Annotation: This 286-nucleotide RNA sequence from Phaedon cochleariae belongs to the Rfam family "Nuclear RNase P". It is annotated as a ribozyme. A search with the family's covariance model found it, with a score of 153 bits. From the family's description: Ribonuclease P (RNase P) is a ubiquitous endoribonuclease, found in archaea, bacteria and eukarya as well as chloroplasts and mitochondria. Its best characterised activity is the generation of mature 5'-ends of tRNAs by cleaving the 5'-leader elements of precursor-tRNAs. Cellular RNase Ps are ribonucleoproteins.
RNA sequence: UCCGCGACAAUCCCGCACCUGGCGCCCUCGCACAGUGUACCCGUUACACCCUUCUCCCUUGGCUACGGGAAGGUCUGAGAAAGGCCGUCGACCCUCUAGCAGGGGGCGCGCGGCAACGCGCGGCGGGAGAACCAGAAACAUGUCGGCGAAGCGUCGCAGCCGAGUAUUGCCGAGGCAUAGGUGAUGCGCCGAGCCGAUUGGAAUCUCCCGCGGCCGGCUCUUUGAGUACAAUUUGCGGGCUGGGCCGCACCGGCCCAGAACUCAAUUCAGACUAGUCUGUUGCGGA
Numbered sequence: 001u002c003c004g005c006g007a008c009a010a011u012c013c014c015g016c017a018c019c020u021g022g023c024g025c026c027c028u029c030g031c032a033c034a035g036u037g038u039a040c041c042c043g044u045u046a047c048a049c050c051c052u053u054c055u056c057c058c059u060u061g062g063c064u065a066c067g068g069g070a071a072g073g074u075c076u077g078a079g080a081a082a083g084g085c086c087g088u089c090g091a092c093c094c095u096c097u098a099g100c101a102g103g104g105g106g107c108g109c110g111c112g113g114c115a116a117c118g119c120g121c122g123g124c125g126g127g128a129g130a131a132c133c134a135g136a137a138a139c140a141u142g143u144c145g146g147c148g149a150a151g152c153g154u155c156g157c158a159g160c161c162g163a164g165u166a167u168u169g170c171c172g173a174g175g176c177a178u179a180g181g182u183g184a185u186g187c188g189c190c191g192a193g194c195c196g197a198u199u200g201g202a203a204u205c206u207c208c209c210g211c212g213g214c215c216g217g218c219u220c221u222u223u224g225a226g227u228a229c230a231a232u233u234u235g236c237g238g239g240c241u242g243g244g245c246c247g248c249a250c251c252g253g254c255c256c257a258g259a260a261c262u263c264a265a266u267u268c269a270g271a272c273u274a275g276u277c278u279g280u281u282g283c284g285g286a
Base pairs, nucleotide, nucleotide: 001286002285003284004283007280008279009278012239013238014237015236016235017234021066024063025062035049036048037047038046039045075270076269077268078267079266083215084214085213086212092106093105094104095103096102107122108121109120110119111118112117123211124210125209126208127207128206129205143197144196145195146194147193240258241257242256243255244254245253246252